Shown here is a 109-nucleotide RNA sequence from Anaerospora hongkongensis, a member of the family "pan motif". A search with the family's covariance model found it, with a score of 52 bits. It is annotated as a cis-regulatory element. The family's consensus secondary structure is taken from published work.

RNA sequence: AGGAUGAUAUCUUUGUGAGUCAUACCGAAAGCGAGCUGUUCAUUUUCAUUAAACGACAACAGAAAUAACCUUACUGCCGCUUAGAUCCGCUGCGGACUGAGACGGAAGG
Numbered sequence: 001a002g003g004a005u006g007a008u009a010u011c012u013u014u015g016u017g018a019g020u021c022a023u024a025c026c027g028a029a030a031g032c033g034a035g036c037u038g039u040u041c042a043u044u045u046u047c048a049u050u051a052a053a054c055g056a057c058a059a060c061a062g063a064a065a066u067a068a069c070c071u072u073a074c075u076g077c078c079g080c081u082u083a084g085a086u087c088c089g090c091u092g093c094g095g096a097c098u099g100a101g102a103c104g105g106a107a108g109g
Stems, first nucleotide, its partner, number of pairs: 002026002004023005010018002077105003080101005086096003